A member of the RNA family "HDV ribozyme from F. prausnitzii" from Rodentolepis nana, 70 nucleotides long.
On this family, see Webb et al., Science 2009: "Widespread occurrence of self-cleaving ribozymes".
Rfam links the family to the GO term catalytic activity.

RNA sequence: UGUGUGCGAUAGACUUACCUCCACGUGGUGCACAUACGGCAACGUAUUCUCAUACGGCAAAAAUGUCUAU
Number, nucleotide and partner (000 for none) at each position: 001u036002g035003u034004g033005u032006g031007c030008g000009a000010u000011a000012g000013a000014c000015u000016u000017a029018c028019c027020u000021c000022c000023a000024c000025g000026u000027g019028g018029u017030g007031c006032a005033c004034a003035u002036a001037c000038g000039g000040c000041a000042a000043c056044g055045u054046a053047u052048u000049c000050u000051c000052a047053u046054a045055c044056g043057g000058c000059a000060a000061a000062a000063a000064u000065g000066u000067c000068u000069a000070u000